[Rfam]
RNA sequence: CUGUAAUUUCAGAUUCCUCCACUUUUGAUCCCUCAUUUUACGUGCCAUGUAUGCAGAUUUUGCUGACGUGGUGGAAUGAGGGAUCAAAAGUGGAAGAAUCUGAAAUUA
Numbered sequence: 001c002u003g004u005a006a007u008u009u010c011a012g013a014u015u016c017c018u019c020c021a022c023u024u025u026u027g028a029u030c031c032c033u034c035a036u037u038u039u040a041c042g043u044g045c046c047a048u049g050u051a052u053g054c055a056g057a058u059u060u061u062g063c064u065g066a067c068g069u070g071g072u073g074g075a076a077u078g079a080g081g082g083a084u085c086a087a088a089a090g091u092g093g094a095a096g097a098a099u100c101u102g103a104a105a106u107u108a
Stems, first nucleotide, its partner, number of pairs: 004108013018094022044072007053063004